[Rfam]
About this RNA:
The family of this 111-nucleotide RNA from Trifolium pratense is "mir-399 microRNA precursor family". For this family Rfam cites "Computational Identification of Plant MicroRNAs and Their Targets, Including a Stress-Induced miRNA" (Jones-Rhoades and Bartel, Mol Cell, 2004). From the family's description: mir-399 was identified in both Arabidopsis thaliana and Oryza sativa computationally and was later experimentally verified. mir-399 is thought to target mRNAs coding for a phosphatase transporter. The mature sequence is excised from the 3' arm of the hairpin. Lineage of the source: Eukaryota > Embryophyta > eudicotyledons > Gunneridae > Trifolium. The base pairs follow the family's consensus structure, which was predicted with PFOLD.

RNA sequence: AGGUGAAUUACUGGGCAAUGACUUCUUUGGCAGAAGUUGAUACAAUUCAGAUGCAGAUAAUCAGAAGCUAACAAACUCACUGCCAAAGAAGAUUUGCCCCGCAAUUCACUC
Numbered sequence: 001a002g003g004u005g006a007a008u009u010a011c012u013g014g015g016c017a018a019u020g021a022c023u024u025c026u027u028u029g030g031c032a033g034a035a036g037u038u039g040a041u042a043c044a045a046u047u048c049a050g051a052u053g054c055a056g057a058u059a060a061u062c063a064g065a066a067g068c069u070a071a072c073a074a075a076c077u078c079a080c081u082g083c084c085a086a087a088g089a090a091g092a093u094u095u096g097c098c099c100c101g102c103a104a105u106u107c108a109c110u111c
Stems, first nucleotide, its partner, number of pairs: 005107005011101001013099006022091004028085006036078001